This 311-nucleotide RNA from Rummeliibacillus sp. TYF005 belongs to the Rfam family "BsrG". From the family's description: bsrE, bsrG and bsrH pair through intermolecular interactions with antisense sRNAs. They form type I toxin/antitoxin system that includes an mRNA encoding for a short, toxic peptide (bsrE, bsrG and bsrH) and an antitoxin that is comprised of an antisense RNA. bsrG encodes a 39-amino-acid toxin, and the 180 nucleotide antisense sRNA called SR4 acts as the antitoxin (they overlap by 123 nucleotides). SR4 interaction with the 3'UTR of bsrG RNA promotes bsrG degradation and inhibits its translation. BsrG interferes with cell envelope biosynthesis, causes membrane invaginations and delocalisation of the cell wall synthesis and initiates autolysis. bsrE RNA encodes 30 amino-acid toxin peptide. Its antitoxin gene, SR5 overlaps by 112 nucleotides at the 3' end of bsrE. SR5 also overlaps bsrG from nucleotide 163 to 52 (Rfam overlap check). The antitoxin SR5 promotes bsrE degradation but unlike SR4 it does not directly inhibits toxin mRNA translation. Rfam links the family to the GO terms toxin activity and autolysis. The source organism's lineage runs through Bacteria, Bacillota, Bacilli, Caryophanaceae and Rummeliibacillus. The family's consensus secondary structure was predicted with WAR.
RNA sequence: AAUAGAUAGAUGAUACUCAAGGGUGGUUGGCUCACUCCCAAAAAGAGGAGCGCAGACUAACACCACCGCGUCCUGCGGUAACGUCUGCAUGACCCACAUCGUGUGGGCCCGGGGGUGAUGCCAUGACAGUAUUUGAAGCAUUAAUGUUUGCAAUCUCGUUUGCAACGUUAGUCAUUGCAAUUCUGUCAUUUAAUCAUAAAAAAUAACCCAUCCUUGAGUUAGCGCUCCGAUGGGUUAUUUAAUCAGUGUGAGCCAAUCCCCUUAAAGGAAUCAACUAUCGUUUUGAUCGUUCGAUGGGAUAACAUCGGCUG
Numbered sequence: 001a002a003u004a005g006a007u008a009g010a011u012g013a014u015a016c017u018c019a020a021g022g023g024u025g026g027u028u029g030g031c032u033c034a035c036u037c038c039c040a041a042a043a044a045g046a047g048g049a050g051c052g053c054a055g056a057c058u059a060a061c062a063c064c065a066c067c068g069c070g071u072c073c074u075g076c077g078g079u080a081a082c083g084u085c086u087g088c089a090u091g092a093c094c095c096a097c098a099u100c101g102u103g104u105g106g107g108c109c110c111g112g113g114g115g116u117g118a119u120g121c122c123a124u125g126a127c128a129g130u131a132u133u134u135g136a137a138g139c140a141u142u143a144a145u146g147u148u149u150g151c152a153a154u155c156u157c158g159u160u161u162g163c164a165a166c167g168u169u170a171g172u173c174a175u176u177g178c179a180a181u182u183c184u185g186u187c188a189u190u191u192a193a194u195c196a197u198a199a200a201a202a203a204u205a206a207c208c209c210a211u212c213c214u215u216g217a218g219u220u221a222g223c224g225c226u227c228c229g230a231u232g233g234g235u236u237a238u239u240u241a242a243u244c245a246g247u248g249u250g251a252g253c254c255a256a257u258c259c260c261c262u263u264a265a266a267g268g269a270a271u272c273a274a275c276u277a278u279c280g281u282u283u284u285g286a287u288c289g290u291u292c293g294a295u296g297g298g299a300u301a302a303c304a305u306c307g308g309c310u311g
Stems, first nucleotide, its partner, number of pairs: 001282003005279001007277003011273001014256001016218008025208004032118003036115004125187005131181001138151003161179004229244002257270001259268002288311002291308006